Description: TPP riboswitch aptamer (THI element): a 115-nucleotide RNA from Mahella australiensis. The source organism's lineage runs through Bacteria, Bacillati, Bacillota, Clostridia and Mahella australiensis.

RNA sequence: AGGUGACCACUGGGGUGCCGGAUGAGGCCGGCUGAGAUAAAGGACCGUUGAAUCCUUUGACCCAUUGAACCUGAUCCGGUUAAUGCCGGCGUAGGAAUGUGGAAUGCGUAUAUAC
Numbered sequence: 001a002g003g004u005g006a007c008c009a010c011u012g013g014g015g016u017g018c019c020g021g022a023u024g025a026g027g028c029c030g031g032c033u034g035a036g037a038u039a040a041a042g043g044a045c046c047g048u049u050g051a052a053u054c055c056u057u058u059g060a061c062c063c064a065u066u067g068a069a070c071c072u073g074a075u076c077c078g079g080u081u082a083a084u085g086c087c088g089g090c091g092u093a094g095g096a097a098u099g100u101g102g103a104a105u106g107c108g109u110a111u112a113u114a115c
Stems, first nucleotide, its partner, number of pairs: 007102004011064004017032005040057004070095004076089004